[Rfam]
RNA sequence: UCGGGAGGGUUUGUGUCCCUCUGUAAGCCUAGCUUUGGGCCGGUAAAUGGAUGCUGAAUUGCGGGGUGUUGGAACUCACGUAGGCGGUGGUUGCUUAGGUAUAUCGCCCGCUAGAAACUCGGUGUUGACAUUCUCUCCUCAGCGUAAGCUCCGGAGAGGAGGCCAUUGAACAUCGGUGUGCUUCAGGCCAGUAAUGGAGCAGAAGAAAUCACCGAGGCACUGAGUAGUCUUGCGGAUCACGAGAAUCAGUUUGGGCCACCGUCGACGCCAGCUCUCUGUCGAGACUCCCAUCCGAGU
Numbered sequence: 001u002c003g004g005g006a007g008g009g010u011u012u013g014u015g016u017c018c019c020u021c022u023g024u025a026a027g028c029c030u031a032g033c034u035u036u037g038g039g040c041c042g043g044u045a046a047a048u049g050g051a052u053g054c055u056g057a058a059u060u061g062c063g064g065g066g067u068g069u070u071g072g073a074a075c076u077c078a079c080g081u082a083g084g085c086g087g088u089g090g091u092u093g094c095u096u097a098g099g100u101a102u103a104u105c106g107c108c109c110g111c112u113a114g115a116a117a118c119u120c121g122g123u124g125u126u127g128a129c130a131u132u133c134u135c136u137c138c139u140c141a142g143c144g145u146a147a148g149c150u151c152c153g154g155a156g157a158g159g160a161g162g163c164c165a166u167u168g169a170a171c172a173u174c175g176g177u178g179u180g181c182u183u184c185a186g187g188c189c190a191g192u193a194a195u196g197g198a199g200c201a202g203a204a205g206a207a208a209u210c211a212c213c214g215a216g217g218c219a220c221u222g223a224g225u226a227g228u229c230u231u232g233c234g235g236a237u238c239a240c241g242a243g244a245a246u247c248a249g250u251u252u253g254g255g256c257c258a259c260c261g262u263c264g265a266c267g268c269c270a271g272c273u274c275u276c277u278g279u280c281g282a283g284a285c286u287c288c289c290a291u292c293c294g295a296g297u
Stems, first nucleotide, its partner, number of pairs: 001043003004022006011015001027040003048294006057286001059284002062281002064276003068272005079267003083263004088258005094253001097250001104242003108235002111232001113230003117225009126165002129162001131160008141150003166172001173215006179207001181205001182203002188197003
RNA: Metazoan signal recognition particle RNA